The family of this 101-nucleotide RNA from Apostasia shenzhenica is "Small nucleolar RNA R30/Z108".
[Rfam]
RNA sequence: GGAGGCUACGGGGAUGAUAAAAGAGCUCCCUCUUCCGAAAUUUCUUGAGGAUUCUUGCUGGCAGAAUCGAACCUAUUACUCUAAUGGCCAAGUCUGAGUAG
Numbered sequence: 001g002g003a004g005g006c007u008a009c010g011g012g013g014a015u016g017a018u019a020a021a022a023g024a025g026c027u028c029c030c031u032c033u034u035c036c037g038a039a040a041u042u043u044c045u046u047g048a049g050g051a052u053u054c055u056u057g058c059u060g061g062c063a064g065a066a067u068c069g070a071a072c073c074u075a076u077u078a079c080u081c082u083a084a085u086g087g088c089c090a091a092g093u094c095u096g097a098g099u100a101g
Stems, first nucleotide, its partner, number of pairs: 006101004
Lineage of the source: Eukaryota > Euphyllophyta > Spermatophyta > Liliopsida > Apostasia. Rfam describes the family as follows. snoR30 is a C/D box small nucleolar RNA which acts as a methylation guide for 18S ribosomal RNA in plants. The family's consensus secondary structure was predicted with PFOLD. The literature on the family includes a 2002 paper in Curr Biol by Marker et al., "Experimental RNomics. Identification of 140 Candidates for Small Non-Messenger RNAs in the Plant Arabidopsis thaliana".